[Rfam]
RNA: c-di-GMP-I riboswitch aptamer
Organism: Olsenella uli
RNA sequence: AUUUCAGCUAAGUAAAACUGUCGAAAGGCAGUGACGUAAAGCUAUAGGGCCUGGAAUGGCAGCCAGCUGCAAUU
Numbered sequence: 001a002u003u004u005c006a007g008c009u010a011a012g013u014a015a016a017a018c019u020g021u022c023g024a025a026a027g028g029c030a031g032u033g034a035c036g037u038a039a040a041g042c043u044a045u046a047g048g049g050c051c052u053g054g055a056a057u058g059g060c061a062g063c064c065a066g067c068u069g070c071a072a073u074u
Base pairs, nucleotide, nucleotide: 012037013036017032018031019030020029021028022027040068041067042066043065047064048063049060050059051058